Source information:
A member of the RNA family "Singlet oxygen resistance RNA X" from Shimia aestuarii, 73 nucleotides long. On this family, see Peng et al., RNA Biol 2016: "Regulation of a polyamine transporter by the conserved 3' UTR-derived sRNA SorX confers resistance to singlet oxygen and organic hydroperoxides in Rhodobacter sphaeroides". Pairs were carried over by alignment from the consensus structure. Rfam's curators write: SorX (RSs2461)like SorY is a singlet oxygen induced sRNA that counteracts oxidative stress by targeting mRNA for a transporter in Rhodobacter. It also has an impact on resistance against organic hydroperoxides. The family's RNA type in Rfam is small RNA. The family has 8 seed sequences and 528 matches in Rfam 15.1.

RNA sequence: AUCCCGCGCAUGUCCGGGUUAUGACAUGCACCUCCCUGUUGGACUGAGCCCGGAUAUGAUCCGGGCUCUUUUU
Numbered sequence: 001a002u003c004c005c006g007c008g009c010a011u012g013u014c015c016g017g018g019u020u021a022u023g024a025c026a027u028g029c030a031c032c033u034c035c036c037u038g039u040u041g042g043a044c045u046g047a048g049c050c051c052g053g054a055u056a057u058g059a060u061c062c063g064g065g066c067u068c069u070u071u072u073u
Stems, first nucleotide, its partner, number of pairs: 008029007047067008
Dot-bracket structure: .......(((((((........))))))).................((((((((.....))))))))......